The record is a 129-nucleotide RNA from Bombus vosnesenskii, which matches "Small nucleolar RNA SNORA79" in Rfam. Rfam classes the family as an H/ACA-box small nucleolar RNA. ACA65 (SNORA79) is a member of the H/ACA class of snoRNAs that guide the sites of modification of uridines to pseudouridines. This snoRNA was identified by computational screening and its expression in mouse experimentally verified by Northern blot and primer extension analysis. The family's consensus secondary structure was predicted with RNAalifold. The family has 25 seed sequences and 944 matches in Rfam 15.1.
RNA sequence: AGACAUCUGUUCCUUUAACGUGAUAUCUCAUAUCAUGUUAGAUUUCAGAUUGUCUUAGAAUAAAUGAAUUGCUUCACCCAGAAUUGUAAUAUACUUCACACUGUCUGGCUUUUGCGGGUUCAUACAAUU
Numbered sequence: 001a002g003a004c005a006u007c008u009g010u011u012c013c014u015u016u017a018a019c020g021u022g023a024u025a026u027c028u029c030a031u032a033u034c035a036u037g038u039u040a041g042a043u044u045u046c047a048g049a050u051u052g053u054c055u056u057a058g059a060a061u062a063a064a065u066g067a068a069u070u071g072c073u074u075c076a077c078c079c080a081g082a083a084u085u086g087u088a089a090u091a092u093a094c095u096u097c098a099c100a101c102u103g104u105c106u107g108g109c110u111u112u113u114g115c116g117g118g119u120u121c122a123u124a125c126a127a128u129u
Base pairs, nucleotide, nucleotide: 001055002054003053004052005051008048014042015041016040017039018038020036021035022034023033066121067120068119069118070117078108079107080106081105082104083102085100086099087098